[Rfam]
RNA sequence: UUACCGGCGGUCUCUAAUUCGCUUGGUGCAGGUCGGGAACCGGUUCUCCGGUCGGACGCCGACCGGCCAGGUGGCGCCCCACUGCUGGGCGGCAGCUUGGCGAAAUGGAUCCCGCCUUGCAUCAACUGAAUCGGAGACCGCGGUGAAG
Number, nucleotide and partner (000 for none) at each position: 001u000002u000003a000004c000005c000006g000007g000008c000009g000010g000011u000012c000013u135014c134015u000016a000017a131018u130019u129020c128021g000022c000023u125024u124025g123026g122027u121028g120029c119030a118031g117032g116033u000034c114035g113036g112037g111038a110039a000040c108041c107042g000043g000044u000045u000046c000047u000048c000049c000050g000051g000052u000053c000054g000055g000056a000057c000058g000059c000060c000061g000062a000063c000064c000065g000066g000067c000068c000069a000070g000071g000072u000073g000074g000075c000076g000077c000078c000079c000080c000081a000082c000083u000084g000085c000086u000087g000088g000089g000090c000091g000092g000093c000094a000095g000096c000097u000098u000099g000100g000101c000102g000103a000104a000105a000106u000107g041108g040109a000110u038111c037112c036113c035114g034115c000116c032117u031118u030119g029120c028121a027122u026123c025124a024125a023126c000127u000128g020129a019130a018131u017132c000133g000134g014135a013136g000137a000138c000139c000140g000141c000142g000143g000144u000145g000146a000147a000148g000